[Rfam]
RNA sequence: UGGAUCAAUGAUGACUACUGAGGCGUAUGAGUCGUAUACGGUGAAUAUGUGUCUGGAACUCUGAGGUCCGA
Dot-bracket structure: .(((((..........................................................)))))..
About this RNA: The family of this 71-nucleotide sequence from Canis lupus is "Small nucleolar RNA SNORD113/SNORD114 family". About the family: The imprinted human domain at 14q32 contains two clusters of tandemly repeated small nucleolar RNAs named 14q(I) and 14q(II) snoRNAs. These two clusters are named SNORD113 and SNORD114 respectively in the HGNC approved gene symbol nomenclature. The snoRNAs found in both clusters are clearly related and are represented here by a single family. These snoRNAs are intron encoded and are processed from the tissue-specific non-coding human MEG8 RNA, which lies downstream of the imprinted genes DLK1 and GTL2. snoRNAs 14q(I) and 14q(II) differ from previously identified C/D box snoRNAs in their expression profiles and lack of complementarity to rRNA and snRNA. Homologues of these snoRNAs are found in the imprinted non-coding mouse transcript Rian, and in the rat non-coding Bsr (brain-specific repetitive) RNA. Rfam 15.1 lists 5,721 matches to the family in 142 species. Its Rfam clan is "SNORD74 clan". Rfam classes the family as a C/D-box small nucleolar RNA. Gene Ontology terms of the family: RNA processing and nucleolus. Lineage of the source: Eukaryota > Dipnotetrapodomorpha > Amniota > Laurasiatheria > Canis lupus. A search with the family's covariance model found it, with a score of 75 bits.